A member of the RNA family "tRNA" from Parahoeflea phototrophica, 73 nucleotides long. The family's consensus secondary structure is taken from published work.
RNA sequence: CGCAGGGUGGGGAAGCGGUUAUCCCGCCUGGUUCAUACCCAGGAUGUCCCCGGUUCGAAUCCGGGCCCUGCAA
Numbered sequence: 001c002g003c004a005g006g007g008u009g010g011g012g013a014a015g016c017g018g019u020u021a022u023c024c025c026g027c028c029u030g031g032u033u034c035a036u037a038c039c040c041a042g043g044a045u046g047u048c049c050c051c052g053g054u055u056c057g058a059a060u061c062c063g064g065g066c067c068c069u070g071c072a073a
Stems, first nucleotide, its partner, number of pairs: 002071006010025004027043005049065005
It is annotated as a transfer RNA. The source organism's lineage runs through Bacteria, Pseudomonadati, Rhizobiaceae, Parahoeflea and Parahoeflea phototrophica.